[Rfam]
RNA sequence: UUAUACUCGUAUUCGAUAUAUCGUAUAUCCGAUCAGAUAUGGUGAUCAAGUCUCUACCGCAGAACCGUAAAUUUUGCGACUACGAUUGUCAACUCCUUUUGU
Numbered sequence: 001u002u003a004u005a006c007u008c009g010u011a012u013u014c015g016a017u018a019u020a021u022c023g024u025a026u027a028u029c030c031g032a033u034c035a036g037a038u039a040u041g042g043u044g045a046u047c048a049a050g051u052c053u054c055u056a057c058c059g060c061a062g063a064a065c066c067g068u069a070a071a072u073u074u075u076g077c078g079a080c081u082a083c084g085a086u087u088g089u090c091a092a093c094u095c096c097u098u099u100u101g102u
Stems, first nucleotide, its partner, number of pairs: 020086006031047005058078007